[Rfam]
RNA: TPP riboswitch aptamer (THI element)
RNA sequence: GGGUAACGACAGGGGAGCGCGCAAGCGCUGAGAGUGCGGGAGACCGCAGACCCUCACACCUGAUCCGGUUCGCACCGGCGUAGGGAGUCGAGAAAUCUCAGAC
Numbered sequence: 001g002g003g004u005a006a007c008g009a010c011a012g013g014g015g016a017g018c019g020c021g022c023a024a025g026c027g028c029u030g031a032g033a034g035u036g037c038g039g040g041a042g043a044c045c046g047c048a049g050a051c052c053c054u055c056a057c058a059c060c061u062g063a064u065c066c067g068g069u070u071c072g073c074a075c076c077g078g079c080g081u082a083g084g085g086a087g088u089c090g091a092g093a094a095a096u097c098u099c100a101g102a103c
Stems, first nucleotide, its partner, number of pairs: 007090004011054004017028004035048005059084004065078004